[Rfam]
RNA sequence: GGCUGCCUGAAACUCUUUCCCUGUUGCACUACUGUGACAGCGAAUAAGCAGUGCAAUGAUGAAAGGGCAUCAGUCUGCAC
Dot-bracket structure: (...(.((((..(((((((..(((((((((...................)))))))))..)))))))..)))).)....)

This 80-nucleotide sequence from Hymenochirus boettgeri belongs to the Rfam family "mir-130 microRNA precursor family". Taxonomically the source falls in Hymenochirus (Eukaryota, Bilateria, Craniata, Dipnotetrapodomorpha). The match comes from Rfam's covariance-model search (43 bits). On this family, see Lagos-Quintana et al., Curr Biol 2002: "Identification of tissue-specific microRNAs from mouse". Rfam links the family to the GO terms RISC complex and miRNA-mediated post-transcriptional gene silencing. The family has 9 seed sequences and 2,580 matches in Rfam 15.1.